Purine riboswitch aptamer: a 100-nucleotide sequence from Sediminibacillus albus. The match comes from Rfam's covariance-model search (78 bits). Its family is annotated with purine nucleobase biosynthetic process in the Gene Ontology.
RNA sequence: CAUAAAAAUAAAUAUAUACCCUGUAUAACCUCAAGAAUAUGGCUUGGGGGUUUCUACCAGGAACCUUAAAAUCCUGAUUACAGAAAAAUGAAUUCUAUUC
Numbered sequence: 001c002a003u004a005a006a007a008a009u010a011a012a013u014a015u016a017u018a019c020c021c022u023g024u025a026u027a028a029c030c031u032c033a034a035g036a037a038u039a040u041g042g043c044u045u046g047g048g049g050g051u052u053u054c055u056a057c058c059a060g061g062a063a064c065c066u067u068a069a070a071a072u073c074c075u076g077a078u079u080a081c082a083g084a085a086a087a088a089u090g091a092a093u094u095c096u097a098u099u100c
Base pairs, nucleotide, nucleotide: 021083022082023081024080025079029049030048031047032046033045034044035043058076059075060074061073062072
Pairs were carried over by alignment from the consensus structure, which is taken from published work. Taxonomically the source falls in Sediminibacillus (Bacteria, Bacillati, Bacillota, Bacillaceae).